A member of the RNA family "mir-2968 microRNA precursor family" from Canis lupus, 106 nucleotides long.
The family's consensus secondary structure is taken from published work.
The literature on the family includes a 2010 paper in Nature by Warren et al., "The genome of a songbird".
Rfam links the family to the GO terms miRNA-mediated post-transcriptional gene silencing and RISC complex.
[Rfam]
RNA sequence: GCUGCCCUGGGAGCCGCUGUCCUCCAGGUCGCUCUGGCAGCCCUCGUCGUGGAGCGAGCCCCGCCUGGUGACCUUGGGCGCCAGCAGCUUGACCAGGUCGGCCAGC
Number, nucleotide and partner (000 for none) at each position: 001g106002c105003u104004g103005c000006c097007c096008u095009g094010g000011g090012a089013g088014c087015c000016g085017c084018u083019g000020u000021c080022c078023u077024c076025c000026a074027g073028g072029u071030c070031g069032c068033u067034c000035u000036g065037g064038c063039a000040g061041c000042c000043c058044u057045c056046g055047u054048c000049g000050u000051g000052g000053a000054g047055c046056g045057a044058g043059c000060c000061c040062c000063g038064c037065c036066u000067g033068g032069u031070g030071a029072c028073c027074u026075u000076g024077g023078g022079c000080g021081c000082c000083a018084g017085c016086a000087g014088c013089u012090u011091g000092a000093c000094c009095a008096g007097g006098u000099c000100g000101g000102c000103c004104a003105g002106c001